[Rfam]
Description
The record is a 52-nucleotide RNA sequence, which matches "ffh sRNA" in Rfam. For this family Rfam cites "Identification of candidate structured RNAs in the marine organism 'Candidatus Pelagibacter ubique'" (Meyer et al., BMC Genomics, 2009). The sequence is in the family's curated seed alignment.
RNA sequence: UUGCCCAAGGAUCGCCACCCGUCAGCGCGUUGCGCCCACGGGUGCGUUUUUG
Numbered sequence: 001u002u003g004c005c006c007a008a009g010g011a012u013c014g015c016c017a018c019c020c021g022u023c024a025g026c027g028c029g030u031u032g033c034g035c036c037c038a039c040g041g042g043u044g045c046g047u048u049u050u051u052g
Stems, first nucleotide, its partner, number of pairs: 016044007025035004